7SK RNA: a 322-nucleotide RNA from Psophia crepitans. The literature on the family includes a 1991 paper in Mol Cell Biol by Wassarman and Steitz, "Structural analyses of the 7SK ribonucleoprotein (RNP), the most abundant human small RNP of unknown function". About the family: 7SK was discovered as an abundant small nuclear RNA in the mid-70s but a possible function has only recently been suggested. Two independent studies have found that 7SK RNA binds the CDK9/cyclin T complex (known as elongation factor P-TEFb). P-TEFb activates transcription by phosphorylating the C-terminal domain of RNA polymerase II. This process is negatively regulated by the 7SK RNP. The secondary structure of 7SK RNA shown here was proposed by Wasserman and Steitz on the basis of chemical modification and enzymatic cleavage experiments. This family contains a number of annotated pseudogenes and 7SK derived repeats. The threshold is artificially high to minimise the pseudogene count. Lineage of the source: Eukaryota > Sarcopterygii > Amniota > Psophiidae > Psophia. The match comes from Rfam's covariance-model search (305 bits).
RNA sequence: UGAUGUGAGGGCGAUCUGGCUGUGACAUCUGUCACCCCAUUGAUCGCCAGGGUUGUUUUGACUGAUCUGGCUGGCUAGGCAGGUGUCCCCUUCCUCUCUCACCGCUCCGUAUGCGUCUCUCCCGAAGCUGUGCGCUCAGUCGAAGAGGAUGACCUUCCCCGAUAGAGACAUACCGUUCAUAGGUCAAGGGUAUACGGUAGCUGUGCUCCCCUACUAGAAGCUCCAAACAAGCUCAAGGUCCAUUUGUAGGAGAACGUAGGGUAGUCAAGCUUCCAAGACUGCCGACACAUCCAAGUGAGGUGCUGCAUGGGGCACUUUUUUU
Numbered sequence: 001u002g003a004u005g006u007g008a009g010g011g012c013g014a015u016c017u018g019g020c021u022g023u024g025a026c027a028u029c030u031g032u033c034a035c036c037c038c039a040u041u042g043a044u045c046g047c048c049a050g051g052g053u054u055g056u057u058u059u060g061a062c063u064g065a066u067c068u069g070g071c072u073g074g075c076u077a078g079g080c081a082g083g084u085g086u087c088c089c090c091u092u093c094c095u096c097u098c099u100c101a102c103c104g105c106u107c108c109g110u111a112u113g114c115g116u117c118u119c120u121c122c123c124g125a126a127g128c129u130g131u132g133c134g135c136u137c138a139g140u141c142g143a144a145g146a147g148g149a150u151g152a153c154c155u156u157c158c159c160c161g162a163u164a165g166a167g168a169c170a171u172a173c174c175g176u177u178c179a180u181a182g183g184u185c186a187a188g189g190g191u192a193u194a195c196g197g198u199a200g201c202u203g204u205g206c207u208c209c210c211c212u213a214c215u216a217g218a219a220g221c222u223c224c225a226a227a228c229a230a231g232c233u234c235a236a237g238g239u240c241c242a243u244u245u246g247u248a249g250g251a252g253a254a255c256g257u258a259g260g261g262u263a264g265u266c267a268a269g270c271u272u273c274c275a276a277g278a279c280u281g282c283c284g285a286c287a288c289a290u291c292c293a294a295g296u297g298a299g300g301u302g303c304u305g306c307a308u309g310g311g312g313c314a315c316u317u318u319u320u321u322u
Stems, first nucleotide, its partner, number of pairs: 002107002005102007013093002018090002024087010035074002037070003042067004046062001048060001118168004122139001124137002127135002140162003147158003200270003206264002209261006221252004227247005298322003302316001304314003